[Rfam]
RNA sequence: GGUGAAGUCACUGGAGGCAGUGGUUCAUCGAUCUCUUCCUGAGUUUGGCCGUGGAAGAACACGAAUCAGGAAUCGGUCGAUAAACCUCUGCAUCCAGUGCGAAACCA
Numbered sequence: 001g002g003u004g005a006a007g008u009c010a011c012u013g014g015a016g017g018c019a020g021u022g023g024u025u026c027a028u029c030g031a032u033c034u035c036u037u038c039c040u041g042a043g044u045u046u047g048g049c050c051g052u053g054g055a056a057g058a059a060c061a062c063g064a065a066u067c068a069g070g071a072a073u074c075g076g077u078c079g080a081u082a083a084a085c086c087u088c089u090g091c092a093u094c095c096a097g098u099g100c101g102a103a104a105c106c107a
Base pairs, nucleotide, nucleotide: 013095014094015093018090019089020088022086023085024084025083027081028080029079030078031077032076033075036072037071038070
RNA: MIR162_1 microRNA precursor family